[Rfam]
RNA sequence: GCCGGACCAGGUGAAAGCCCGGGUGGCUCUUCCGGCCGCCGAUCCGCCGGAUAACG
Numbered sequence: 001g002c003c004g005g006a007c008c009a010g011g012u013g014a015a016a017g018c019c020c021g022g023g024u025g026g027c028u029c030u031u032c033c034g035g036c037c038g039c040c041g042a043u044c045c046g047c048c049g050g051a052u053a054a055c056g
Stems, first nucleotide, its partner, number of pairs: 006024003010020002012017001031051006
Rfam assigns this 56-nucleotide sequence from Methylorubrum extorquens to the family "sul1 RNA". Pairs were carried over by alignment from the consensus structure, which is taken from published work. NCBI's taxonomy places the organism under Bacteria, Pseudomonadota, Hyphomicrobiales, Methylorubrum, Methylorubrum extorquens.